[Rfam]
RNA: c-di-AMP riboswitch aptamer (ydaO/yuaA leader)
Organism: Paenibacillus donghaensis
RNA sequence: UAUUAACUACUGCCGAGUUUCAUUUGAAAACGGGGGAACCAUUUCCGGGUGAAUUAUUCUUGUGAGUAAGAGAAUAUAGGGAACCUUUAACCGAACCCUUAGCUAACUCCGUAGGCAUUGAAGGGAGAACAA
Number, nucleotide and partner (000 for none) at each position: 001u000002a000003u000004u000005a000006a000007c000008u000009a000010c000011u117012g116013c115014c114015g000016a000017g000018u029019u028020u027021c000022a000023u000024u000025u000026g000027a020028a019029a018030a112031c111032g110033g109034g108035g107036g000037a000038a000039c000040c000041a000042u000043u000044u000045c000046c000047g098048g097049g096050u000051g000052a000053a000054u000055u076056a075057u074058u073059c072060u071061u070062g000063u000064g000065a000066g000067u000068a000069a000070g061071a060072g059073a058074a057075u056076a055077u000078a000079g092080g091081g000082a000083a000084c000085c000086u000087u000088u000089a000090a000091c080092c079093g000094a000095a000096c049097c048098c047099u000100u000101a000102g000103c000104u000105a000106a000107c035108u034109c033110c032111g031112u030113a000114g014115g013116c012117a011118u000119u000120g000121a000122a000123g000124g000125g000126a000127g000128a000129a000130c000131a000132a000